[Rfam]
RNA sequence: UAUUGAUAUGAUGAUAUCAUAUAUUUUUUUUUGGAAAAUAUGAUGUCGAAUAAAAAAAUCAGACUACAAUUAUCUGAUCAAUG
Numbered sequence: 001u002a003u004u005g006a007u008a009u010g011a012u013g014a015u016a017u018c019a020u021a022u023a024u025u026u027u028u029u030u031u032u033g034g035a036a037a038a039u040a041u042g043a044u045g046u047c048g049a050a051u052a053a054a055a056a057a058a059u060c061a062g063a064c065u066a067c068a069a070u071u072a073u074c075u076g077a078u079c080a081a082u083g
Base pairs, nucleotide, nucleotide: 001083002082003081004080005079006078